[Rfam]
RNA: c-di-GMP-I riboswitch aptamer
RNA sequence: UGCUCAAAAGGGUAAACCCAUCGAAAGGUGGGGACACAAAGCCAUGGGUCUAAGGCCUUUAAAAGGGCUAUGAUCGCCAGGCUGCCGGC
Numbered sequence: 001u002g003c004u005c006a007a008a009a010g011g012g013u014a015a016a017c018c019c020a021u022c023g024a025a026a027g028g029u030g031g032g033g034a035c036a037c038a039a040a041g042c043c044a045u046g047g048g049u050c051u052a053a054g055g056c057c058u059u060u061a062a063a064a065g066g067g068c069u070a071u072g073a074u075c076g077c078c079a080g081g082c083u084g085c086c087g088g089c
Base pairs, nucleotide, nucleotide: 012037013036017032018031019030020029021028022027040083041082042081043080045079046078047077048074049073050072055068056067057066058065